[Rfam]
RNA: tRNA
Organism: Paenibacillus oceani
RNA sequence: GCGCUCGUGGUCCAAUGGAUAUGACGUAGGCCUCCGGAGCCUGAGAUCAAGGUUCGAUUCCUUGCGAGCGCG
Numbered sequence: 001g002c003g004c005u006c007g008u009g010g011u012c013c014a015a016u017g018g019a020u021a022u023g024a025c026g027u028a029g030g031c032c033u034c035c036g037g038a039g040c041c042u043g044a045g046a047u048c049a050a051g052g053u054u055c056g057a058u059u060c061c062u063u064g065c066g067a068g069c070g071c072g
Base pairs, nucleotide, nucleotide: 001071002070003069004068005067006066007065010025011024012023027043028042029041030040031039048064049063050062051061052060
Dot-bracket structure: (((((((..(((..........))).(((((.......)))))....(((((.......)))))))))))).